[Rfam]
Shown here is a 154-nucleotide sequence from Paenibacillus endophyticus, a member of the family "c-di-AMP riboswitch aptamer (ydaO/yuaA leader)".
RNA sequence: AAUAAAAAACGGCCUAAUUCCCUAUCGGGAAACGGGGGAACCACUCUGGGUGAAUUGAUUCCGACGUCUGAUUUAUCGCAGCGCGCCUGAGGAAUCAUAGGGAACCUUCAACCGAACCCCACAGCUAACCUCGUCGGCAUUGGAAGGAGUUUCA
Numbered sequence: 001a002a003u004a005a006a007a008a009a010c011g012g013c014c015u016a017a018u019u020c021c022c023u024a025u026c027g028g029g030a031a032a033c034g035g036g037g038g039a040a041c042c043a044c045u046c047u048g049g050g051u052g053a054a055u056u057g058a059u060u061c062c063g064a065c066g067u068c069u070g071a072u073u074u075a076u077c078g079c080a081g082c083g084c085g086c087c088u089g090a091g092g093a094a095u096c097a098u099a100g101g102g103a104a105c106c107u108u109c110a111a112c113c114g115a116a117c118c119c120c121a122c123a124g125c126u127a128a129c130c131u132c133g134u135c136g137g138c139a140u141u142g143g144a145a146g147g148a149g150u151u152u153c154a
Stems, first nucleotide, its partner, number of pairs: 012138003018031003032134006048119003056097007100113002
The match comes from Rfam's covariance-model search (69 bits).